The record is a 136-nucleotide RNA from Cricetulus griseus, which matches "Small nucleolar RNA SNORA4" in Rfam.
By type it is an H/ACA-box small nucleolar RNA.
Rfam links the family to the GO terms RNA processing and nucleolus.
A search with the family's covariance model found it, with a score of 76 bits.
NCBI's taxonomy places the organism under Eukaryota, Eumetazoa, Chordata, Muroidea, Cricetulus.
The family is grouped with related families in Rfam's "SNORA4 clan".
Rfam's curators write: ACA4 is a member of the H/ACA class of snoRNA that guide the sites of modification of uridines to pseudouridines.
RNA sequence: GUACCAAAAGCUAGAUUUCUGGGGAAGAUUUUUUUUAACUUUAACAAACUUGGGAUAUUUGCCGGAAUUAUUAAGACCACACUCCACAGUGGGCUGUACUAUAUUGGAUAUUUACUACUAUCUUGUGACCUACAAU
Numbered sequence: 001g002u003a004c005c006a007a008a009a010g011c012u013a014g015a016u017u018u019c020u021g022g023g024g025a026a027g028a029u030u031u032u033u034u035u036u037a038a039c040u041u042u043a044a045c046a047a048a049c050u051u052g053g054g055a056u057a058u059u060u061g062c063c064g065g066a067a068u069u070a071u072u073a074a075g076a077c078c079a080c081a082c083u084c085c086a087c088a089g090u091g092g093g094c095u096g097u098a099c100u101a102u103a104u105u106g107g108a109u110a111u112u113u114a115c116u117a118c119u120a121u122c123u124u125g126u127g128a129c130c131u132a133c134a135a136u
Base pairs, nucleotide, nucleotide: 005061006060007059008058012057013056016053017052021050022049024045027040029038030037074131075130078127079126080125081124088116089115090114091113092112093111095110096109097108099106